[Rfam]
RNA: mir-1540 microRNA precursor family
Organism: Sarcophilus harrisii
RNA sequence: GAUUCCAUGGAGCAUAUGCUCUGGCUCUCUGGGGAUGGACAUGCGCUCUAUGGAAUCAC
Numbered sequence: 001g002a003u004u005c006c007a008u009g010g011a012g013c014a015u016a017u018g019c020u021c022u023g024g025c026u027c028u029c030u031g032g033g034g035a036u037g038g039a040c041a042u043g044c045g046c047u048c049u050a051u052g053g054a055a056u057c058a059c
Stems, first nucleotide, its partner, number of pairs: 001057013015043004020039003025034003